[Rfam]
RNA sequence: GUUAACCGGCGAGUUUGCCUUGCGGCAAACAUCGCUUAUUAACGUAUGCGCUAUCGCGCAUCAAUGUAGCAACUUCCAAAGUUUAUACUUUGUUCAGUUGCUGCAUUUUAAU
Numbered sequence: 001g002u003u004a005a006c007c008g009g010c011g012a013g014u015u016u017g018c019c020u021u022g023c024g025g026c027a028a029a030c031a032u033c034g035c036u037u038a039u040u041a042a043c044g045u046a047u048g049c050g051c052u053a054u055c056g057c058g059c060a061u062c063a064a065u066g067u068a069g070c071a072a073c074u075u076c077c078a079a080a081g082u083u084u085a086u087a088c089u090u091u092g093u094u095c096a097g098u099u100g101c102u103g104c105a106u107u108u109u110a111a112u
Base pairs, nucleotide, nucleotide: 011033012032013030014029015028016027017026018025019024048059049058050057051056064106065105066104067103068102069101070100071099072098073097074096077092078091079090080089081088082087
The family of this 112-nucleotide RNA sequence from Treponema vincentii is "TD-1 RNA".